[Rfam]
RNA sequence: ACGGUUACGCCUCCUUAUCACUUGUUCGUCGCAGUUGCUAUAGAAACACUGGACGGAGAACUGAUAAGGGCAUGUGACCAA
Numbered sequence: 001a002c003g004g005u006u007a008c009g010c011c012u013c014c015u016u017a018u019c020a021c022u023u024g025u026u027c028g029u030c031g032c033a034g035u036u037g038c039u040a041u042a043g044a045a046a047c048a049c050u051g052g053a054c055g056g057a058g059a060a061c062u063g064a065u066a067a068g069g070g071c072a073u074g075u076g077a078c079c080a081a
Stems, first nucleotide, its partner, number of pairs: 012070009022060002025057003030052001

Notes: A member of the RNA family "mir-184 microRNA precursor family" from Magallana gigas, 81 nucleotides long. On this family, see Chen et al., Genes Dev 2005: "The developmental miRNA profiles of zebrafish as determined by small RNA cloning". A search with the family's covariance model found it, with a score of 62 bits.